[Rfam]
RNA sequence: UUCCUGGUGGUCCAGUGGUUAGGACUCGGCACUUUCACUGCUGGGGCCCUGGUUCAAUCCCUGGUCGGGAAC
Numbered sequence: 001u002u003c004c005u006g007g008u009g010g011u012c013c014a015g016u017g018g019u020u021a022g023g024a025c026u027c028g029g030c031a032c033u034u035u036c037a038c039u040g041c042u043g044g045g046g047c048c049c050u051g052g053u054u055c056a057a058u059c060c061c062u063g064g065u066c067g068g069g070a071a072c
Stems, first nucleotide, its partner, number of pairs: 001071007010025004027043005048064002051061002
Dot-bracket structure: (((((((..((((........)))).(((((.......)))))....((.((.......)).))))))))).
Rfam assigns this 72-nucleotide RNA sequence from Balaenoptera physalus to the family "tRNA". A search with the family's covariance model found it, with a score of 48 bits. NCBI's taxonomy places the organism under Eukaryota, Euteleostomi, Theria, Laurasiatheria, Balaenoptera. By type it is a transfer RNA. Its family is annotated with triplet codon-amino acid adaptor activity in the Gene Ontology. Rfam 15.1 lists 5,335,975 matches to the family in 14,413 species.